[Rfam]
RNA sequence: UGCAAAUGAUGUCUUUUCACGAUGGUCUUCCAAGUCUGUCUGGCUCUGACGACAAUGCCUUUGGCAUAACUGAUGCAGCCUC
Numbered sequence: 001u002g003c004a005a006a007u008g009a010u011g012u013c014u015u016u017u018c019a020c021g022a023u024g025g026u027c028u029u030c031c032a033a034g035u036c037u038g039u040c041u042g043g044c045u046c047u048g049a050c051g052a053c054a055a056u057g058c059c060u061u062u063g064g065c066a067u068a069a070c071u072g073a074u075g076c077a078g079c080c081u082c
Stems, first nucleotide, its partner, number of pairs: 001077004
RNA: Small nucleolar RNA SNORD35